[Rfam]
RNA: TPP riboswitch aptamer (THI element)
RNA sequence: CGGCUUACCUCGGGGUGCCCCAUGGGGCUGAGAUGCGCGCCUGCGCGAACCCGUCGAACCUGACCCGGUUAGAACCGGCGGAGGGAAGGUCCAUGGAGAACAU
Number, nucleotide and partner (000 for none) at each position: 001c000002g000003g000004c000005u000006u000007a090008c089009c088010u087011c053012g052013g051014g050015g000016u047017g028018c027019c026020c025021c000022a000023u000024g000025g020026g019027g018028c017029u000030g000031a000032g000033a000034u000035g046036c045037g044038c043039g000040c000041c000042u000043g038044c037045g036046c035047g016048a000049a000050c014051c013052c012053g011054u000055c000056g000057a000058a000059c084060c083061u082062g000063a000064c000065c078066c077067g076068g075069u000070u000071a000072g000073a000074a000075c068076c067077g066078g065079c000080g000081g000082a061083g060084g059085g000086a000087a010088g009089g008090u007091c000092c000093a000094u000095g000096g000097a000098g000099a000100a000101c000102a000103u000